[Rfam]
RNA sequence: UGGAAGUGAUGAAAUAGAGAUAAUUGGAUGUAAUUUUGAAUGGAGUGUGUGUGAUAAAUGGAAUUUAAACCCAAUUAGACUGGGGGUGGGUUGUGGGGAAUAUAUAUAUAUGUGUGUGUGUGUGUGCAUGUGUAGAAAGGCUUUAAAUGGGGGCACUGAUAAUGCAGUGCUGAUUCCGGAGUGCAUCUGAGGCAUGUUGUUCAGUUUCUGGGGUGUCACUUCACAACAUUGCCGAUGAUUAAAGCCCAAAACAAGCCCACCAAGACAAGCCUAAGCAUCCUAAAUCUCUAACAGGUUCAUUAAUAAAAGUGAUCCUGUGAUCUGAUCUGA
Numbered sequence: 001u002g003g004a005a006g007u008g009a010u011g012a013a014a015u016a017g018a019g020a021u022a023a024u025u026g027g028a029u030g031u032a033a034u035u036u037u038g039a040a041u042g043g044a045g046u047g048u049g050u051g052u053g054a055u056a057a058a059u060g061g062a063a064u065u066u067a068a069a070c071c072c073a074a075u076u077a078g079a080c081u082g083g084g085g086g087u088g089g090g091u092u093g094u095g096g097g098g099a100a101u102a103u104a105u106a107u108a109u110a111u112g113u114g115u116g117u118g119u120g121u122g123u124g125u126g127c128a129u130g131u132g133u134a135g136a137a138a139g140g141c142u143u144u145a146a147a148u149g150g151g152g153g154c155a156c157u158g159a160u161a162a163u164g165c166a167g168u169g170c171u172g173a174u175u176c177c178g179g180a181g182u183g184c185a186u187c188u189g190a191g192g193c194a195u196g197u198u199g200u201u202c203a204g205u206u207u208c209u210g211g212g213g214u215g216u217c218a219c220u221u222c223a224c225a226a227c228a229u230u231g232c233c234g235a236u237g238a239u240u241a242a243a244g245c246c247c248a249a250a251a252c253a254a255g256c257c258c259a260c261c262a263a264g265a266c267a268a269g270c271c272u273a274a275g276c277a278u279c280c281u282a283a284a285u286c287u288c289u290a291a292c293a294g295g296u297u298c299a300u301u302a303a304u305a306a307a308a309g310u311g312a313u314c315c316u317g318u319g320a321u322c323u324g325a326u327c328u329g330a
Stems, first nucleotide, its partner, number of pairs: 001329004195228006204219002208215001
RNA: Small Cajal body-specific RNA 7
Organism: Chordeiles acutipennis